[Rfam]
RNA sequence: UGGCAAGAAGUCCCCAGGGCCUAGCUGAUUUCAACCACGGUAAUAAGCUCCAUAGAUAGCCUAUCACCGGGUGGAAAUCAGUUAGGGCCUUCUGGGCUUCA
Number, nucleotide and partner (000 for none) at each position: 001u000002g000003g000004c000005a000006a000007g000008a000009a000010g000011u000012c000013c000014c000015c000016a091017g090018g089019g088020c087021c086022u085023a083024g082025c081026u080027g079028a078029u077030u076031u075032c074033a000034a072035c071036c070037a000038c069039g000040g067041u066042a000043a064044u063045a062046a000047g000048c000049u000050c000051c000052a000053u000054a000055g000056a000057u000058a000059g000060c000061c000062u045063a044064u043065c000066a041067c040068c000069g038070g036071g035072u034073g000074g032075a031076a030077a029078u028079c027080a026081g025082u024083u023084a000085g022086g021087g020088c019089c018090u017091u016092c000093u000094g000095g000096g000097c000098u000099u000100c000101a000
Shown here is a 101-nucleotide RNA sequence from Caenorhabditis brenneri, a member of the family "mir-36 microRNA precursor family". The match comes from Rfam's covariance-model search (55 bits).